RNA sequence: GUGAGUAGCAGCAUAGCACGGUGAGAAUCCGUGUCGCCGCAGGGGCAAGGGUUCCUUGGCAAUGUUCGUCAGCCAAGGGUUAGUCGAUCUUAACCGUACUCUUAAUCGAAGUGCGGGAAUAGGAAUCAGGUUAAUAUUCCUGAACUCCGACAGCCUCUGUCCUCAGUGAAGGAUCGGGAUAGCAUGAGCAAGUCUGUCUGCUUGUCUAAGCGUGCAAGGGGAUGAAGAACCGUAAUGGUGAGAAGUUCCCGAAAGCGUGACGGGGAGGGAGCAAUCCCUCUUCAUGUGAUUCCUGGUCCCAGUGAAAACACUGAGGAGUCAGUUGCCGGAAUCGUACCAAGAACCGACACAGGUGUCCCUAGGUGAGUAGCCUAAGGCGUGU
Numbered sequence: 001g002u003g004a005g006u007a008g009c010a011g012c013a014u015a016g017c018a019c020g021g022u023g024a025g026a027a028u029c030c031g032u033g034u035c036g037c038c039g040c041a042g043g044g045g046c047a048a049g050g051g052u053u054c055c056u057u058g059g060c061a062a063u064g065u066u067c068g069u070c071a072g073c074c075a076a077g078g079g080u081u082a083g084u085c086g087a088u089c090u091u092a093a094c095c096g097u098a099c100u101c102u103u104a105a106u107c108g109a110a111g112u113g114c115g116g117g118a119a120u121a122g123g124a125a126u127c128a129g130g131u132u133a134a135u136a137u138u139c140c141u142g143a144a145c146u147c148c149g150a151c152a153g154c155c156u157c158u159g160u161c162c163u164c165a166g167u168g169a170a171g172g173a174u175c176g177g178g179a180u181a182g183c184a185u186g187a188g189c190a191a192g193u194c195u196g197u198c199u200g201c202u203u204g205u206c207u208a209a210g211c212g213u214g215c216a217a218g219g220g221g222a223u224g225a226a227g228a229a230c231c232g233u234a235a236u237g238g239u240g241a242g243a244a245g246u247u248c249c250c251g252a253a254a255g256c257g258u259g260a261c262g263g264g265g266a267g268g269g270a271g272c273a274a275u276c277c278c279u280c281u282u283c284a285u286g287u288g289a290u291u292c293c294u295g296g297u298c299c300c301a302g303u304g305a306a307a308a309c310a311c312u313g314a315g316g317a318g319u320c321a322g323u324u325g326c327c328g329g330a331a332u333c334g335u336a337c338c339a340a341g342a343a344c345c346g347a348c349a350c351a352g353g354u355g356u357c358c359c360u361a362g363g364u365g366a367g368u369a370g371c372c373u374a375a376g377g378c379g380u381g382u
Stems, first nucleotide, its partner, number of pairs: 016034006035379004043358004049338002054078006063071002085334003089122002094116006100109002126143005146330004151325003171299009182287005188205005210258004219249005229239003270275001344353002360374004
This 382-nucleotide part of an RNA from methanogenic archaeon ISO4-H5 belongs to the Rfam family "Archaeal large subunit ribosomal RNA".
A search with the family's covariance model found it, with a score of 2706 bits.
Rfam links the family to the GO terms ribosome and structural constituent of ribosome.